[Rfam]
RNA sequence: GGGUGUCACGCCGGUUUGAGCGGGGCAGGUUUUUCAGUCGCCGGUCGGGCCGCCGGUG
Numbered sequence: 001g002g003g004u005g006u007c008a009c010g011c012c013g014g015u016u017u018g019a020g021c022g023g024g025g026c027a028g029g030u031u032u033u034u035c036a037g038u039c040g041c042c043g044g045u046c047g048g049g050c051c052g053c054c055g056g057u058g
Base pairs, nucleotide, nucleotide: 005026006025007024009022010021011020039058040057041056042055043054044053045052
Overview
The family of this 58-nucleotide RNA from Sphingobium amiense is "nhaA-I RNA". From the family's description: Acidobacteria, Alphaproteobacteria, Betaproteobacteria and Gammaproteobacteria, Verrucomicrobia, cand. division NC10. It is annotated as a riboswitch. The family's consensus secondary structure is taken from published work. NCBI's taxonomy places the organism under Bacteria, Pseudomonadota, Alphaproteobacteria, Sphingomonadales, Sphingobium.